The family of this 122-nucleotide RNA from Propithecus coquereli is "Small Cajal body specific RNA 15". Pairs were carried over by alignment from the consensus structure, which was predicted with RNAfold. The organism belongs to Propithecus, within Eukaryota. The literature on the family includes a 2002 paper in EMBO J by Darzacq et al., "Cajal body-specific small nuclear RNAs: a novel class of 2'-O-methylation and pseudouridylation guide RNAs". It is annotated as a small Cajal body RNA. Rfam describes the family as follows. scaRNAs are a specific class of small nuclear RNAs which localise to the Cajal bodies and guide the modification of RNA polymerase II transcribed spliceosomal RNAs U1, U2, U4, U5 and U12. ACA45 belongs to the H/ACA box class of guide RNAs as it has the predicted hairpin-hinge-hairpin-tail structure, the conserved H/ACA-box motifs and is found associated with GAR1. ACA45 is predicted to guide the pseudouridylation of residue U37 of the U2 spliceosomal snRNA. A search with the family's covariance model found it, with a score of 93 bits.
RNA sequence: CUGGCGUCUAAGAAAAUAGAGUCAUUGAAAUCAAGCUGACACUGCUUUUAGCCUUCUUAAUGAAAAGGUAGAUAGAUCUUGUUUGCAAAAUAAAUCUAAGACCUACUUAUCUACCAAUAGCA
Numbered sequence: 001c002u003g004g005c006g007u008c009u010a011a012g013a014a015a016a017u018a019g020a021g022u023c024a025u026u027g028a029a030a031u032c033a034a035g036c037u038g039a040c041a042c043u044g045c046u047u048u049u050a051g052c053c054u055u056c057u058u059a060a061u062g063a064a065a066a067g068g069u070a071g072a073u074a075g076a077u078c079u080u081g082u083u084u085g086c087a088a089a090a091u092a093a094a095u096c097u098a099a100g101a102c103c104u105a106c107u108u109a110u111c112u113a114c115c116a117a118u119a120g121c122a
Stems, first nucleotide, its partner, number of pairs: 003056002006053001008051004017044003021040003025034003067115007074104002077101005
Dot-bracket structure: ..((.(.((((.....(((.(((.(((....)))...))).)))...)))).).))..........(((((((((.(((((...............))))).))....))))))).......